[Rfam]
RNA sequence: UAAAAGGGUCGGUUGGCUAAAUAUGCCACGCUCACCCUUGACUGGUGAGUGCUGUAUGGCUAUCAAGACAUAUGGCCGACGUAAUUUCUGAAACCUCAUAGGGUUGGCUCGCUUGGCCGACCCUCCAA
Numbered sequence: 001u002a003a004a005a006g007g008g009u010c011g012g013u014u015g016g017c018u019a020a021a022u023a024u025g026c027c028a029c030g031c032u033c034a035c036c037c038u039u040g041a042c043u044g045g046u047g048a049g050u051g052c053u054g055u056a057u058g059g060c061u062a063u064c065a066a067g068a069c070a071u072a073u074g075g076c077c078g079a080c081g082u083a084a085u086u087u088c089u090g091a092a093a094c095c096u097c098a099u100a101g102g103g104u105u106g107g108c109u110c111g112c113u114u115g116g117c118c119g120a121c122c123c124u125c126c127a128a
Stems, first nucleotide, its partner, number of pairs: 008080005014028004029051008052075007100124010
RNA: U11 spliceosomal RNA